Pseudomonas rpsL leader: a 123-nucleotide RNA from Azomonas macrocytogenes. On this family, see Naville and Gautheret, Genome Biol 2010: "Premature terminator analysis sheds light on a hidden world of bacterial transcriptional attenuation". The family's consensus secondary structure is taken from published work. Rfam classes the family as a cis-regulatory leader.
RNA sequence: UGUCGGAGGGCCGUCUUGACGGUGCAUAGGGAGCUCUUUAGACUCUCCUACCCUUAAUUUGGCGGGGCAUAUUCGCUCUGCCAUUUUUCGUUUGUGUCGUAUGACAACAGUGGAGCAAGUAGA
Numbered sequence: 001u002g003u004c005g006g007a008g009g010g011c012c013g014u015c016u017u018g019a020c021g022g023u024g025c026a027u028a029g030g031g032a033g034c035u036c037u038u039u040a041g042a043c044u045c046u047c048c049u050a051c052c053c054u055u056a057a058u059u060u061g062g063c064g065g066g067g068c069a070u071a072u073u074c075g076c077u078c079u080g081c082c083a084u085u086u087u088u089c090g091u092u093u094g095u096g097u098c099g100u101a102u103g104a105c106a107a108c109a110g111u112g113g114a115g116c117a118a119g120u121a122g123a
Base pairs, nucleotide, nucleotide: 004018005017006016008014022053024051026049029046030045031044034041035040060083061082062081063080064079065078066077067076068075090120092118093117094116095115096105097104098103